[Rfam]
Nucleotides: 075
Base pairs, nucleotide, nucleotide: 001075002074003073005071
Number, partner (000 for none) and nucleotide at each position: 001075c002074c003073u004000c005071c006000g007000a008000u009000g010000a011000c012000g013000a014000u015000g016000c017000a018000a019000u020000u021000c022000a023000a024000u025000g026000a027000c028000u029000u030000u031000c032000g033000u034000u035000c036000u037000u038000c039000u040000g041000a042000g043000c044000u045000c046000g047000c048000u049000g050000a051000a052000g053000c054000c055000g056000c057000a058000u059000g060000u061000g062000a063000a064000a065000g066000u067000c068000u069000g070000a071005g072000g073003a074002g075001g
Small nucleolar RNA SNORD59: a 75-nucleotide RNA from Coturnix japonica. Pairs were carried over by alignment from the consensus structure, which was predicted with ILM. It scores 59 bits against the family's covariance model. The source organism's lineage runs through Eukaryota, Eumetazoa, Bilateria, Deuterostomia and Coturnix. It is annotated as a C/D-box small nucleolar RNA. Gene Ontology terms of the family: RNA processing and nucleolus. A reference for the family is Galardi et al. (2002), "Purified box C/D snoRNPs are able to reproduce site-specific 2'-O-methylation of target RNA in vitro", Mol Cell Biol.